[Rfam]
This 86-nucleotide RNA from Desulfosarcina alkanivorans belongs to the Rfam family "c-di-GMP-I riboswitch aptamer". It scores 39 bits against the family's covariance model.
RNA sequence: UCCAGAAAAAGCCAAACCCCGGGUGACCGGGGGACGGAAAGAAACAGGUCCGGUUAGAGUGUAUUUUCAGGAACGUUUUUAACAAU
Numbered sequence: 001u002c003c004a005g006a007a008a009a010a011g012c013c014a015a016a017c018c019c020c021g022g023g024u025g026a027c028c029g030g031g032g033g034a035c036g037g038a039a040a041g042a043a044a045c046a047g048g049u050c051c052g053g054u055u056a057g058a059g060u061g062u063a064u065u066u067u068c069a070g071g072a073a074c075g076u077u078u079u080u081a082a083c084a085a086u
Base pairs, nucleotide, nucleotide: 012037013036017032018031019030020029021028022027040080041079042078043077047076049072050071056066057065058064